FMN riboswitch aptamer (RFN element): a 184-nucleotide RNA sequence from Phenylobacterium zucineum.
Lineage of the source: Bacteria > Pseudomonadota > Caulobacterales > Phenylobacterium > Phenylobacterium zucineum.
It scores 76 bits against the family's covariance model.

RNA sequence: CUGCGUUCUCAGGGCGGGGUGAAACUCCCCACCGGCGGUAAUGCCCUCCAGACCUUGGCGUAGCCUCGGCGACGGAGGGACGAGCCCGCGGGCGCCUGGGCCUUCGUCAUAGGAAGGUCCCAGGGACGAGCAGACCCGGUGCGAUCCCGGGGCCGACGGUCAUAGUCCGGUUAUGAGAACGGCC
Numbered sequence: 001c002u003g004c005g006u007u008c009u010c011a012g013g014g015c016g017g018g019g020u021g022a023a024a025c026u027c028c029c030c031a032c033c034g035g036c037g038g039u040a041a042u043g044c045c046c047u048c049c050a051g052a053c054c055u056u057g058g059c060g061u062a063g064c065c066u067c068g069g070c071g072a073c074g075g076a077g078g079g080a081c082g083a084g085c086c087c088g089c090g091g092g093c094g095c096c097u098g099g100g101c102c103u104u105c106g107u108c109a110u111a112g113g114a115a116g117g118u119c120c121c122a123g124g125g126a127c128g129a130g131c132a133g134a135c136c137c138g139g140u141g142c143g144a145u146c147c148c149g150g151g152g153c154c155g156a157c158g159g160u161c162a163u164a165g166u167c168c169g170g171u172u173a174u175g176a177g178a179a180c181g182g183c184c
Base pairs, nucleotide, nucleotide: 004181005180006179007178008177009176010175017029018028019027031166032165033155034154035089036088037087038086092131093130135151136150137149138148139147157169158168159167